A member of the RNA family "Bacterial small signal recognition particle RNA" from Mycoplasmopsis edwardii, 97 nucleotides long. A reference for the family is Rosenblad et al. (2003), "SRPDB: Signal Recognition Particle Database", Nucleic Acids Res. Rfam's curators write: The signal recognition particle (SRP) is a universally conserved ribonucleoprotein involved in the co-translational targeting of proteins to membranes. The family's consensus secondary structure is taken from published work. A search with the family's covariance model found it, with a score of 45 bits.
RNA sequence: UAAGAAAGCCAUCAGAACAAUAACCUACUAACUUGGUCAGGAUAGAGAUAUAGCAGCCAUAUGAAGAAGUGUUGUGUCAGGUGGUCUUUUUUUAUUA
Numbered sequence: 001u002a003a004g005a006a007a008g009c010c011a012u013c014a015g016a017a018c019a020a021u022a023a024c025c026u027a028c029u030a031a032c033u034u035g036g037u038c039a040g041g042a043u044a045g046a047g048a049u050a051u052a053g054c055a056g057c058c059a060u061a062u063g064a065a066g067a068a069g070u071g072u073u074g075u076g077u078c079a080g081g082u083g084g085u086c087u088u089u090u091u092u093u094a095u096u097a
Stems, first nucleotide, its partner, number of pairs: 004091005009084005017075006025066002028063001034059004042051003